[Rfam]
RNA sequence: AGUCAAGAGUCUUUGGCACCGAUUUGGUGAGCGUAUUUCUUUUGCCUAGAGAAAGGUGAGAGAGAGAUG
Number, nucleotide and partner (000 for none) at each position: 001a000002g000003u000004c000005a000006a000007g000008a000009g000010u063011c062012u061013u060014u059015g000016g000017c058018a057019c056020c055021g000022a000023u053024u052025u051026g000027g000028u000029g047030a000031g045032c044033g043034u000035a041036u000037u000038u000039c000040u000041u035042u000043u033044g032045c031046c000047u029048a000049g000050a000051g025052a024053a023054a000055g020056g019057u018058g017059a014060g013061a012062g011063a010064g000065a000066g000067a000068u000069g000
The family of this 69-nucleotide RNA sequence from Rhizobium album is "S-element". Rfam links the family to the GO terms translation regulator activity and mRNA transcription. Pairs were carried over by alignment from the consensus structure, which is taken from published work. From the family's description: This family represents a group of S-elements from p42d and related plasmids. The S-element has multiple functions and is believed to act as a negative regulator of repC transcription, be required for efficient replication and act as a translational enhancer of repC. On this family, see Venkova-Canova et al., Mol Microbiol 2004: "Two discrete elements are required for the replication of a repABC plasmid: an antisense RNA and a stem-loop structure". The match comes from Rfam's covariance-model search (74 bits).